[Rfam]
RNA sequence: ACAACAAGUUAUCGGUGACAAAUUCCCGUGAGGAAAAGUCUGGUUUGUGCUAGGCUAGCCGAAUAACUGACC
Dot-bracket structure: ......((((.(((((......((((.....)))).(((((((......))))))).)))))..))))....
Numbered sequence: 001a002c003a004a005c006a007a008g009u010u011a012u013c014g015g016u017g018a019c020a021a022a023u024u025c026c027c028g029u030g031a032g033g034a035a036a037a038g039u040c041u042g043g044u045u046u047g048u049g050c051u052a053g054g055c056u057a058g059c060c061g062a063a064u065a066a067c068u069g070a071c072c
Stems, first nucleotide, its partner, number of pairs: 007068004012062005023035004037056007
This 72-nucleotide RNA belongs to the Rfam family "DUF3800-II RNA".